[Rfam]
RNA sequence: GACUUACAUUCAGUAGCGAGCUUAACCGAAUAGGGGAGGCGUAGGGAAACCGAGUCUUAAUAGGGCGAACAGUUGCUGGGUGUAGACCCGAAACCGAGUGAUCUAUCCAUGGCCAGGUUGAAGGUGCCGUAACAGGUACUGGAGGACCGAACCCACGCAUGUUGCAAAAUGCGGGGAUGAGCUGUGGAUAGGGGUGAAAGGCUAAACAAACUCGGAGAUAGCUGGUU
Dot-bracket structure: ....(((((((((((((..((((..((.....))..))))...((....))..((((.....)))).....)))))))))))))..((.(...((((((...((((((((((((.((((...((((((......))))))....))))...(((.(((((........))))))))..).))))))))))).(((.....)))......))))))......).))..
Bacterial large subunit ribosomal RNA: a 227-nucleotide part of an RNA from Morococcus cerebrosus. A search with the family's covariance model found it, with a score of 2865 bits. Rfam links the family to the GO terms ribosome and structural constituent of ribosome.